RNA sequence: UCCACAUUCGGAUCGUCGGUCUAGCGAGCAAUUUCACCAUCUAGGUGGAAGGUCUUCCCUUUGUCGU
Numbered sequence: 001u002c003c004a005c006a007u008u009c010g011g012a013u014c015g016u017c018g019g020u021c022u023a024g025c026g027a028g029c030a031a032u033u034u035c036a037c038c039a040u041c042u043a044g045g046u047g048g049a050a051g052g053u054c055u056u057c058c059c060u061u062u063g064u065c066g067u
Base pairs, nucleotide, nucleotide: 004064005063006062010058011057012056015053016052017051020049021048022047023046025044027042028041
The record is a 67-nucleotide RNA sequence from Bombyx mori, which matches "mir-2774 microRNA precursor family" in Rfam.
Lineage of the source: Eukaryota > Pancrustacea > Allotriocarida > Bombycidae > Bombyx.
It scores 66 bits against the family's covariance model.
Its family is annotated with RISC complex and miRNA-mediated post-transcriptional gene silencing in the Gene Ontology.